Background
Rfam assigns this 89-nucleotide RNA sequence from Rhizobium sp. BK376 to the family "Glycine riboswitch aptamer". It scores 66 bits against the family's covariance model. The family is grouped with related families in Rfam's "Glycine riboswitch clan". Its family is annotated with glycine biosynthetic process in the Gene Ontology. Lineage of the source: Bacteria > Pseudomonadota > Alphaproteobacteria > Rhizobiaceae > Rhizobium.
[Rfam]
RNA sequence: AUGACCCUGUUGGGAGAAUCCGGUGAGGAGCCGGUGCCGAAGGAGCAACCGCCCCGGAAACUCUCAGGCAAAAGGACCAGCAGCGGGCA
Number, nucleotide and partner (000 for none) at each position: 001a000002u000003g000004a000005c000006c000007c083008u082009g081010u080011u079012g078013g077014g000015a000016g000017a000018a000019u000020c034021c033022g032023g031024u000025g000026a000027g000028g000029a000030g000031c023032c022033g021034g020035u000036g069037c068038c067039g065040a064041a000042g000043g063044a062045g061046c000047a000048a000049c057050c056051g000052c000053c000054c000055c000056g050057g049058a000059a000060a000061c045062u044063c043064u040065c039066a000067g038068g037069c036070a000071a000072a000073a000074g000075g000076a000077c013078c012079a011080g010081c009082a008083g007084c000085g000086g000087g000088c000089a000